[Rfam]
RNA sequence: GCUGGAGUUGCGCGGGAAGUAGUUGGAGAAGGCAUAGCCGCGCGACUGGUCGAUGGUGUGAAACAGCGGGUUCCAGUCGAAGAUCGCCAGCAUCCCCGGCGUCAGCGAGUUGGCCACGAACAUCUUGCCGGAGGCGAUCAUAUUGGCGCGCUG
Number, nucleotide and partner (000 for none) at each position: 001g000002c000003u034004g033005g000006a000007g000008u030009u029010g000011c000012g000013c025014g024015g023016g000017a000018a000019g000020u000021a000022g000023u015024u014025g013026g000027a000028g000029a009030a008031g000032g000033c004034a003035u000036a000037g057038c056039c055040g054041c052042g051043c000044g000045a000046c000047u000048g000049g000050u000051c042052g041053a000054u040055g039056g038057u037058g000059u000060g000061a000062a000063a000064c153065a152066g151067c150068g149069g000070g000071u081072u080073c079074c000075a000076g000077u000078c000079g073080a072081a071082g000083a000084u000085c000086g147087c146088c145089a144090g143091c000092a141093u140094c000095c133096c131097c130098g129099g000100c000101g000102u000103c127104a126105g125106c000107g123108a000109g000110u119111u118112g117113g000114c000115c000116a000117c112118g111119a110120a000121c000122a000123u107124c000125u105126u104127g103128c000129c098130g097131g096132a000133g095134g000135c000136g000137a000138u000139c000140a093141u092142a000143u090144u089145g088146g087147c086148g000149c068150g067151c066152u065153g064
Ruegeria cis2 sRNA: a 153-nucleotide RNA from Salipiger sp. CCB-MM3. Taxonomically the source falls in Salipiger (Bacteria, Pseudomonadati, Pseudomonadota, Roseobacteraceae). A search with the family's covariance model found it, with a score of 76 bits. The base pairs follow the family's consensus structure, which was predicted with RNAfold.